This 85-nucleotide RNA sequence from Triplophysa tibetana belongs to the Rfam family "mir-181 microRNA precursor family". Rfam 15.1 lists 3,490 matches to the family in 650 species. Taxonomically the source falls in Triplophysa (Eukaryota, Vertebrata, Neopterygii, Osteoglossocephalai).

[Rfam]
RNA sequence: UGCAUUCUGGGAACAUUCAACGCUGUCGGUGAGUUUGGACAUGCGUCAGAAACCAUCGACCGUUGGAUGUGCCUUGAGAUUACCA
Numbered sequence: 001u002g003c004a005u006u007c008u009g010g011g012a013a014c015a016u017u018c019a020a021c022g023c024u025g026u027c028g029g030u031g032a033g034u035u036u037g038g039a040c041a042u043g044c045g046u047c048a049g050a051a052a053c054c055a056u057c058g059a060c061c062g063u064u065g066g067a068u069g070u071g072c073c074u075u076g077a078g079a080u081u082a083c084c085a
Stems, first nucleotide, its partner, number of pairs: 001085002004081001006079003014069009025060007033053004